A member of the RNA family "Legionella RNA 69" from Legionella pneumophila, 82 nucleotides long.
By type it is a small RNA.
The source organism's lineage runs through Bacteria, Legionellales, Legionella, Legionella pneumophila and Legionella pneumophila subsp. pneumophila.
The base pairs follow the family's consensus structure, which was predicted with RNAfold.
Rfam's curators write: Identified by strand specific sequencing of the transcriptional response during broth growth and during infection inside the host. Infection specific expression.
RNA sequence: AGACGAUGCUUAGGCAUCUCCUCAGCCCGAACGUACCCUGGGUAUCGACGGGCUGUUAUAUCCUCUUUAGCCAUAACUCACG
Dot-bracket structure: .((.(((((....)))))))..(((((((...(((((...)))))...)))))))...........................
Numbered sequence: 001a002g003a004c005g006a007u008g009c010u011u012a013g014g015c016a017u018c019u020c021c022u023c024a025g026c027c028c029g030a031a032c033g034u035a036c037c038c039u040g041g042g043u044a045u046c047g048a049c050g051g052g053c054u055g056u057u058a059u060a061u062c063c064u065c066u067u068u069a070g071c072c073a074u075a076a077c078u079c080a081c082g
Stems, first nucleotide, its partner, number of pairs: 002020002005018005023055007033045005